[Rfam]
RNA sequence: GAGGGGGAAGACGGGAGAAGAGAAGGGAGUGGUUUAUGGGUGCCUCACUCCUCCCCUCCCGUCUUGUUCUCUC
Number, nucleotide and partner (000 for none) at each position: 001g000002a000003g000004g069005g068006g067007g000008a065009a064010g063011a062012c061013g060014g059015g058016a057017g056018a000019a000020g000021a000022g053023a000024a052025g051026g050027g049028a000029g048030u047031g046032g000033u000034u000035u000036a000037u000038g000039g000040g000041u000042g000043c000044c000045u000046c031047a030048c029049u027050c026051c025052u024053c022054c000055c000056c017057u016058c015059c014060c013061g012062u011063c010064u009065u008066g000067u006068u005069c004070u000071c000072u000073c000